[Rfam]
RNA sequence: GUAUUCUUUCGGGGCAGGGUGUAAUUCCCAACCGGCAGUGAUUAAGCCUGCGACCAACUUAAUCUUAAUUUAUUAAGUGGCUGAUCUAGUGAGACUCUAGAGCCGACAGUAAAAGUCUGGAUGGGAGGAAGAAUCA
Numbered sequence: 001g002u003a004u005u006c007u008u009u010c011g012g013g014g015c016a017g018g019g020u021g022u023a024a025u026u027c028c029c030a031a032c033c034g035g036c037a038g039u040g041a042u043u044a045a046g047c048c049u050g051c052g053a054c055c056a057a058c059u060u061a062a063u064c065u066u067a068a069u070u071u072a073u074u075a076a077g078u079g080g081c082u083g084a085u086c087u088a089g090u091g092a093g094a095c096u097c098u099a100g101a102g103c104c105g106a107c108a109g110u111a112a113a114a115g116u117c118u119g120g121a122u123g124g125g126a127g128g129a130a131g132a133a134u135c136a
Base pairs, nucleotide, nucleotide: 003134004133005132006131007130008129009128010127017029018028019027031116032115033105034104035051036050037049038048046103047102055080085101086100087099088098089097107119108118109117
RNA: FMN riboswitch aptamer (RFN element)